[Rfam]
RNA sequence: AUGUAACGUUGGCAAACCUUCUGAAAAGAUGGGACGCAAAGCUAUGGGCCUACGGUUUUUAUAACUACGGUUGCCAGGUUGCGCUA
Numbered sequence: 001a002u003g004u005a006a007c008g009u010u011g012g013c014a015a016a017c018c019u020u021c022u023g024a025a026a027a028g029a030u031g032g033g034a035c036g037c038a039a040a041g042c043u044a045u046g047g048g049c050c051u052a053c054g055g056u057u058u059u060u061a062u063a064a065c066u067a068c069g070g071u072u073g074c075c076a077g078g079u080u081g082c083g084c085u086a
Stems, first nucleotide, its partner, number of pairs: 012037002017032002020029003040080004045076003048071003055065003

A member of the RNA family "c-di-GMP-I riboswitch aptamer" from Aneurinibacillus soli, 86 nucleotides long. About the family: GEMM was predicted in a large-scale screen for bacterial structured RNA regulatory elements. A search with the family's covariance model found it, with a score of 67 bits.